Notes
Streptomyces sRNA scr5239: a 157-nucleotide RNA sequence from Streptomyces wuyuanensis.

RNA sequence: CCUCCGCCCUCCCCGCACAGGAGGGUGGACCGAGGACCCGGCGCUCUCUGCCCUGACUGCGCCGCGGGCCUCCACACGGCCGAACGGGACCGCACACCCGCCGGCCGGGCAACUCCGGGCUGCGGUGCCGGACGGGCUGAGGGUCCCGUCCCGGCGC
Numbered sequence: 001c002c003u004c005c006g007c008c009c010u011c012c013c014c015g016c017a018c019a020g021g022a023g024g025g026u027g028g029a030c031c032g033a034g035g036a037c038c039c040g041g042c043g044c045u046c047u048c049u050g051c052c053c054u055g056a057c058u059g060c061g062c063c064g065c066g067g068g069c070c071u072c073c074a075c076a077c078g079g080c081c082g083a084a085c086g087g088g089a090c091c092g093c094a095c096a097c098c099c100g101c102c103g104g105c106c107g108g109g110c111a112a113c114u115c116c117g118g119g120c121u122g123c124g125g126u127g128c129c130g131g132a133c134g135g136g137c138u139g140a141g142g143g144u145c146c147c148g149u150c151c152c153g154g155c156g157c
Stems, first nucleotide, its partner, number of pairs: 003029004008024005032072004038066001039064003043060002045056002077107006086099003112126003116122002130151007

Pairs were carried over by alignment from the consensus structure, which is taken from published work. The match comes from Rfam's covariance-model search (135 bits). Rfam classes the family as a small RNA. The literature on the family includes a 2015 paper in PLoS One by Vockenhuber et al., "Identification of metE as a second target of the sRNA scr5239 in Streptomyces coelicolor".